[Rfam]
Nucleotides: 160
Base pairs, nucleotide, nucleotide: 012122013121014120015119016048017047018046019045020044021043023042024041025040027038049090050089052087056083057082058081060079061078062077063076093116094115095113096112097111099109100108141160143158147154148153
Number, partner (000 for none) and nucleotide at each position: 001000a002000u003000a004000g005000u006000u007000a008000g009000c010000c011000g012122g013121c014120a015119g016048g017047g018046g019045a020044g021043a022000u023042a024041c025040c026000a027038u028000g029000a030000c031000c032000a033000c034000a035000a036000a037000g038027g039000a040025g041024g042023u043021u044020u045019u046018c047017c048016c049090a050089g051000a052087g053000c054000a055000a056083g057082g058081c059000u060079u061078a062077u063076c064000c065000u066000u067000u068000g069000c070000a071000c072000u073000c074000c075000u076063g077062a078061u079060g080000u081058g082057c083056u084000g085000a086000c087052c088000a089050u090049u091000g092000a093116g094115a095113u096112u097111u098000c099109c100108c101000c102000a103000a104000a105000u106000g107000u108100g109099g110000g111097a112096a113095a114000c115094u116093c117000g118000a119015c120014u121013g122012c123000a124000u125000a126000a127000u128000u129000u130000g131000u132000g133000g134000u135000a136000g137000u138000g139000g140000g141160g142000g143158a144000c145000u146000a147154u148153g149000u150000u151000u152000g153148u154147g155000c156000u157000u158143u159000a160141c